mir-166 microRNA precursor family: a 144-nucleotide RNA sequence from Nicotiana attenuata. A search with the family's covariance model found it, with a score of 78 bits. The base pairs follow the family's consensus structure, which was predicted with PFOLD. Its family is annotated with miRNA-mediated post-transcriptional gene silencing and RISC complex in the Gene Ontology. On this family, see Reinhart et al., Genes Dev 2002: "MicroRNAs in plants".
[Rfam]
RNA sequence: AUUGUGGGGAAUGUUGUUUGGCUCGAGGAUUCUUCAAUCUUGAUCAAAUUCUUACUUUUUUUUAUGGAUCUGUAUAUCAAUAUAGAUCUAUAAUAUUGGAUCAUUUUUUUUGGUAUCGUCGGACCAGGCUUCAUUCCCCUCAAA
Numbered sequence: 001a002u003u004g005u006g007g008g009g010a011a012u013g014u015u016g017u018u019u020g021g022c023u024c025g026a027g028g029a030u031u032c033u034u035c036a037a038u039c040u041u042g043a044u045c046a047a048a049u050u051c052u053u054a055c056u057u058u059u060u061u062u063u064a065u066g067g068a069u070c071u072g073u074a075u076a077u078c079a080a081u082a083u084a085g086a087u088c089u090a091u092a093a094u095a096u097u098g099g100a101u102c103a104u105u106u107u108u109u110u111u112g113g114u115a116u117c118g119u120c121g122g123a124c125c126a127g128g129c130u131u132c133a134u135u136c137c138c139c140u141c142a143a144a
Base pairs, nucleotide, nucleotide: 002143003142004141006139007138008137009136010135011134012133013132016129017128018127019126020125021124024121025120026119
Dot-bracket structure: .(((.((((((((..((((((..(((............................................................................................)))..))))))..)))))))).))).